This 585-nucleotide part of an RNA from Lwoffella lincolnii belongs to the Rfam family "Bacterial large subunit ribosomal RNA". The source organism's lineage runs through Bacteria, Pseudomonadati, Pseudomonadota, Moraxellaceae and Lwoffella. It scores 2788 bits against the family's covariance model. Gene Ontology terms of the family: structural constituent of ribosome and ribosome.
RNA sequence: CCCGCGGCUAGACGGAAAGACCCCGUGAACCUUUACUACAGCUUUACAUUGAACUUUGACCUGACUUGUGCAGGAUAGGUGGGAGGCUAUGAAGCAGAUACGCCAGUAUUUGUGGAGUCAACCUUGAAAUACCACCCUGGUCAUGUUGGGGUUCUAACUUAGAUAUUCACAAUAUCGAGGACAAUGUAUGGUGGGUAGUUUGACUGGGGCGGUCUCCUCCUAAAGAGUAACGGAGGAGUACGAAGGUGCGCUCAGAACGGUCGGAAAUCGUUCAAAGAGUAUAAAGGCAAAAGCGCGCUUAACUGCGAGACCCACAAGUCGAGCAGGUACGAAAGUAGGUCUUAGUGAUCCGGUGGUUCUGUAUGGAAGGGCCAUCGCUCAACGGAUAAAAGGUACUCUGGGGAUAACAGGCUGAUACCGCCCAAGAGUUCAUAUCGACGGCGGUGUUUGGCACCUCGAUGUCGGCUCAUCUCAUCCUGGGGCUGAAGCAGGUCCCAAGGGUAUGGCUGUUCGCCAUUUAAAGAGGUACGCGAGCUGGGUUUAGAACGUCGUGAGACAGUUCGGUCCCUAUCUACCGUGGGCGUU
Number, nucleotide and partner (000 for none) at each position: 001c581002c580003c579004g578005c577006g576007g575008c000009u000010a573011g572012a571013c000014g568015g567016a000017a000018a000019g000020a000021c000022c402023c401024c400025g399026u000027g398028a397029a394030c393031c392032u391033u390034u000035a199036c198037u197038a196039c000040a000041g000042c191043u190044u000045u188046a187047c186048a185049u000050u000051g154052a153053a152054c151055u150056u149057u148058g147059a146060c145061c000062u143063g142064a141065c140066u139067u000068g137069u000070g000071c000072a000073g000074g000075a000076u000077a000078g136079g135080u134081g133082g132083g000084a000085g119086g118087c117088u000089a000090u000091g000092a000093a000094g113095c112096a111097g110098a109099u108100a107101c106102g000103c000104c000105a000106g101107u100108a099109u098110u097111u096112g095113u094114g000115g000116a000117g087118u086119c085120a000121a000122c000123c000124u000125u000126g000127a000128a000129a000130u000131a000132c082133c081134a080135c079136c078137c068138u000139g066140g065141u064142c063143a062144u000145g060146u059147u058148g057149g056150g055151g054152u053153u052154c051155u000156a000157a000158c179159u178160u177161a000162g176163a175164u174165a173166u172167u171168c000169a000170c000171a167172a166173u165174a164175u163176c162177g160178a159179g158180g000181a000182c000183a000184a000185u048186g047187u046188a045189u000190g043191g042192u000193g000194g000195g000196u038197a037198g036199u035200u000201u000202g214203a213204c212205u211206g000207g000208g000209g000210c000211g205212g204213u203214c202215u237216c236217c235218u234219c233220c232221u000222a000223a000224a000225g000226a000227g000228u000229a000230a000231c000232g220233g219234a218235g217236g216237a215238g383239u000240a340241c339242g000243a000244a000245g000246g298247u297248g296249c295250g294251c293252u278253c277254a000255g273256a272257a271258c270259g269260g268261u000262c000263g000264g000265a000266a000267a000268u260269c259270g258271u257272u256273c255274a000275a000276a000277g253278a252279g288280u287281a000282u000283a000284a000285a000286g000287g280288c279289a000290a000291a000292a000293g251294c250295g249296c248297g247298c246299u000300u000301a000302a000303c326304u325305g324306c323307g000308a000309g320310a319311c318312c000313c000314a000315c000316a000317a000318g311319u310320c309321g000322a000323g306324c305325a304326g303327g000328u337329a336330c335331g000332a000333a000334a000335g330336u329337a328338g000339g241340u240341c000342u000343u000344a000345g000346u000347g000348a000349u000350c000351c377352g376353g375354u374355g373356g372357u371358u000359c370360u369361g000362u000363a000364u000365g000366g000367a000368a000369g360370g359371g357372c356373c355374a354375u353376c352377g351378c000379u000380c000381a000382a000383c238384g000385g000386a000387u000388a000389a000390a033391a032392g031393g030394u029395a000396c000397u028398c027399u025400g024401g023402g022403g000404a000405u000406a000407a000408c000409a000410g000411g452412c451413u450414g000415a449416u446417a445418c444419c443420g442421c441422c440423c000424a000425a000426g436427a435428g000429u000430u000431c000432a000433u000434a000435u427436c426437g000438a000439c000440g422441g421442c420443g419444g418445u417446g416447u000448u000449u415450g413451g412452c411453a000454c000455c000456u000457c000458g000459a000460u000461g000462u000463c538464g536465g535466c534467u533468c530469a527470u526471c525472u524473c523474a000475u000476c501477c500478u000479g496480g495481g494482g493483c492484u491485g000486a000487a000488g000489c000490a000491g484492g483493u482494c481495c480496c479497a000498a000499g000500g477501g476502u000503a517504u516505g515506g514507c513508u000509g000510u000511u000512c000513g507514c506515c505516a504517u503518u000519u000520a000521a000522a000523g473524a472525g471526g470527u469528a000529c000530g468531c000532g000533a467534g466535c465536u464537g000538g463539g000540u000541u000542u000543a000544g562545a561546a560547c559548g557549u556550c555551g000552u000553g000554a000555g550556a549557c548558a000559g547560u546561u545562c544563g000564g000565u000566c000567c015568c014569u000570a000571u012572c011573u010574a000575c007576c006577g005578u004579g003580g002581g001582c000583g000584u000585u000